The family of this 68-nucleotide RNA from Hucho hucho is "mir-8/mir-141/mir-200 microRNA precursor family". Lineage of the source: Eukaryota > Euteleostomi > Salmoniformes > Salmoninae > Hucho. The base pairs follow the family's consensus structure, which was predicted with RNAalifold. A search with the family's covariance model found it, with a score of 55 bits. Rfam links the family to the GO terms miRNA-mediated post-transcriptional gene silencing and RISC complex. The literature on the family includes a 2001 paper in Science by Lagos-Quintana et al., "Identification of novel genes coding for small expressed RNAs". Rfam 15.1 lists 2,669 matches to the family in 883 species.
RNA sequence: AUUGUUGUCUUACCAGACAUGUUUAGAUCUAGCUACUCUGUCUAAUACUGUCUGGUAAUGCCGUCCAU
Numbered sequence: 001a002u003u004g005u006u007g008u009c010u011u012a013c014c015a016g017a018c019a020u021g022u023u024u025a026g027a028u029c030u031a032g033c034u035a036c037u038c039u040g041u042c043u044a045a046u047a048c049u050g051u052c053u054g055g056u057a058a059u060g061c062c063g064u065c066c067a068u
Stems, first nucleotide, its partner, number of pairs: 002067001004065001006063002009060001010058010023045005